[Rfam]
RNA: FMN riboswitch aptamer (RFN element)
RNA sequence: GCUGUCUCUCAGGGCGGGGUGAAAGUCCCCACCGGCGGUACAGCCCGCGAGCGCCCGGCCACCAGGCCGGGGUCCAGCAGAUCCGGUGAAAUUCCGGGGCCGACGGUUACAGUCCGGAUGAAAGAGGACCGGC
Numbered sequence: 001g002c003u004g005u006c007u008c009u010c011a012g013g014g015c016g017g018g019g020u021g022a023a024a025g026u027c028c029c030c031a032c033c034g035g036c037g038g039u040a041c042a043g044c045c046c047g048c049g050a051g052c053g054c055c056c057g058g059c060c061a062c063c064a065g066g067c068c069g070g071g072g073u074c075c076a077g078c079a080g081a082u083c084c085g086g087u088g089a090a091a092u093u094c095c096g097g098g099g100c101c102g103a104c105g106g107u108u109a110c111a112g113u114c115c116g117g118a119u120g121a122a123a124g125a126g127g128a129c130c131g132g133c
Base pairs, nucleotide, nucleotide: 002131004129005128006127008126009125010124017029018028019027031113032112033102034101035048036047037046038045043100044099051078052077082098083097084096085095086094104116105115106114